[Rfam]
RNA sequence: UAACCUUGUAAUUCGGGGGAUUGGCCCCGGAGUAUCCACGACCGGACCAUAAUCCGGUGCAUCCAGGGAAA
Numbered sequence: 001u002a003a004c005c006u007u008g009u010a011a012u013u014c015g016g017g018g019g020a021u022u023g024g025c026c027c028c029g030g031a032g033u034a035u036c037c038a039c040g041a042c043c044g045g046a047c048c049a050u051a052a053u054c055c056g057g058u059g060c061a062u063c064c065a066g067g068g069a070a071a
Stems, first nucleotide, its partner, number of pairs: 001071001004068005012031007041058006
Dot-bracket structure: (..(((((...(((((((......))))))).........((((((......)))))).....)))))..)